[Rfam]
RNA sequence: GGAAGUGUGGCCGAGCGGUUGAAGGCACCGGUCUUGAAAACCGGCGACCCGAAAGGGUUCCAGAGUUCGAAUCUCUGCGCUUCCG
Numbered sequence: 001g002g003a004a005g006u007g008u009g010g011c012c013g014a015g016c017g018g019u020u021g022a023a024g025g026c027a028c029c030g031g032u033c034u035u036g037a038a039a040a041c042c043g044g045c046g047a048c049c050c051g052a053a054a055g056g057g058u059u060c061c062a063g064a065g066u067u068c069g070a071a072u073c074u075c076u077g078c079g080c081u082u083c084c085g
Stems, first nucleotide, its partner, number of pairs: 001084007010026003028044005061077005